[Rfam]
RNA sequence: GUGGCCGUGAGGUCGGGUGGAGAGCAACCGGAUGCGAAAGACCAGUCCGUAGGAGCACGAAUCCGUUUCGGCGUAGAGCCGUGGCGAGCCCGCUGGAUUAUGGCGAAGCCUGGAAGAACCGCUGGCGCUAAGGCGACUGACAAAGCGACCAGGGGACGGCCUACGUGAUUGGGAUCGGAAUGGUCGGACGGCAAGAUGG
Numbered sequence: 001g002u003g004g005c006c007g008u009g010a011g012g013u014c015g016g017g018u019g020g021a022g023a024g025c026a027a028c029c030g031g032a033u034g035c036g037a038a039a040g041a042c043c044a045g046u047c048c049g050u051a052g053g054a055g056c057a058c059g060a061a062u063c064c065g066u067u068u069c070g071g072c073g074u075a076g077a078g079c080c081g082u083g084g085c086g087a088g089c090c091c092g093c094u095g096g097a098u099u100a101u102g103g104c105g106a107a108g109c110c111u112g113g114a115a116g117a118a119c120c121g122c123u124g125g126c127g128c129u130a131a132g133g134c135g136a137c138u139g140a141c142a143a144a145g146c147g148a149c150c151a152g153g154g155g156a157c158g159g160c161c162u163a164c165g166u167g168a169u170u171g172g173g174a175u176c177g178g179a180a181u182g183g184u185c186g187g188a189c190g191g192c193a194a195g196a197u198g199g
Stems, first nucleotide, its partner, number of pairs: 002015005028199003034192002040185004045181001046179004062174003071166003075162001078160004083110003088104003
The family of this 199-nucleotide RNA from Telmatospirillum siberiense is "Group II catalytic intron D1-D4-3". On this family, see Bonen and Vogel, Trends Genet 2001: "The ins and outs of group II introns". Gene Ontology term of the family: Group II intron splicing.